[Rfam]
RNA sequence: UCCAGUGGUAGUCAGCUGUCCAGAGCAAUACCAUGCCUGGGAUAGUGUUACACUGCUGGGAGAUAAAGAUCCGUCAUUCCUUGUGGCUGCUGUUGUCACCAUCGGGAGGCAGCUGGUGCCAGCAAGGGGUGGCAUUGUGCUUCCCUGAGAGCGCACUAAAGGUUCUGUUCUCCUCUUUAGUGCUAGUCUGGAAGCCUACACA
Numbered sequence: 001u002c003c004a005g006u007g008g009u010a011g012u013c014a015g016c017u018g019u020c021c022a023g024a025g026c027a028a029u030a031c032c033a034u035g036c037c038u039g040g041g042a043u044a045g046u047g048u049u050a051c052a053c054u055g056c057u058g059g060g061a062g063a064u065a066a067a068g069a070u071c072c073g074u075c076a077u078u079c080c081u082u083g084u085g086g087c088u089g090c091u092g093u094u095g096u097c098a099c100c101a102u103c104g105g106g107a108g109g110c111a112g113c114u115g116g117u118g119c120c121a122g123c124a125a126g127g128g129g130u131g132g133c134a135u136u137g138u139g140c141u142u143c144c145c146u147g148a149g150a151g152c153g154c155a156c157u158a159a160a161g162g163u164u165c166u167g168u169u170c171u172c173c174u175c176u177u178u179a180g181u182g183c184u185a186g187u188c189u190g191g192a193a194g195c196c197u198a199c200a201c202a
Base pairs, nucleotide, nucleotide: 001060002059003058004057005056006055007054008053009052011051012050015046016045017044018043019042020041021039022038023037068135071132072131073130074129075128080126081125082124083123084121085120086119088118089117090116091115137197139195140194141193142192143191144190153183154182155181157179158178159177160176161175162174

Record summary: Shown here is a 202-nucleotide sequence from Sinosuthora webbiana, a member of the family "Small nucleolar RNA SNORA74". It scores 92 bits against the family's covariance model. The base pairs follow the family's consensus structure, which was predicted with PFOLD. On this family, see Ganot et al., Genes Dev 1997: "The family of box ACA small nucleolar RNAs is defined by an evolutionarily conserved secondary structure and ubiquitous sequence elements essential for RNA accumulation". The family has 24 seed sequences and 1,348 matches in Rfam 15.1.